[Rfam]
Rfam assigns this 136-nucleotide RNA from Grallaria varia to the family "Small Cajal body specific RNA 3". By type it is a small Cajal body RNA. It scores 116 bits against the family's covariance model. NCBI's taxonomy places the organism under Eukaryota, Deuterostomia, Craniata, Aves, Grallaria. About the family: scaRNAs are a specific class of small nuclear RNAs which localise to the Cajal bodies and guide the modification of RNA polymerase II transcribed spliceosomal RNAs U1, U2, U4, U5 and U12. The family has 23 seed sequences and 642 matches in Rfam 15.1. Gene Ontology terms of the family: nucleolus, Cajal body and RNA processing. The literature on the family includes a 2002 paper in EMBO J by Darzacq et al., "Cajal body-specific small nuclear RNAs: a novel class of 2'-O-methylation and pseudouridylation guide RNAs".
RNA sequence: ACUGGAAGCUGCUGGGACCAGUUGUGGGCAAAAUAAAUAUUUUUUUGUCCACUGUUGCAGUCUUCCUAGAGCAAAGUGGAGGUCUCUGUCUGCUUUAGGACAGCCAACUAAACCGGAUCGUUCCCCUCCAUAUACA
Numbered sequence: 001a002c003u004g005g006a007a008g009c010u011g012c013u014g015g016g017a018c019c020a021g022u023u024g025u026g027g028g029c030a031a032a033a034u035a036a037a038u039a040u041u042u043u044u045u046u047g048u049c050c051a052c053u054g055u056u057g058c059a060g061u062c063u064u065c066c067u068a069g070a071g072c073a074a075a076g077u078g079g080a081g082g083u084c085u086c087u088g089u090c091u092g093c094u095u096u097a098g099g100a101c102a103g104c105c106a107a108c109u110a111a112a113c114c115g116g117a118u119c120g121u122u123c124c125c126c127u128c129c130a131u132a133u134a135c136a
Base pairs, nucleotide, nucleotide: 004066005065006064008061009060010059011058012057024052025051026050027049028048029047078129079128080127081126082125086120088118089117090116092114094112095111096110097109098108
Dot-bracket structure: ...(((.(((((...........((((((.................))))))....)))))..)))...........(((((...(.(((.(.(((((.........))))).).))).)....))))).......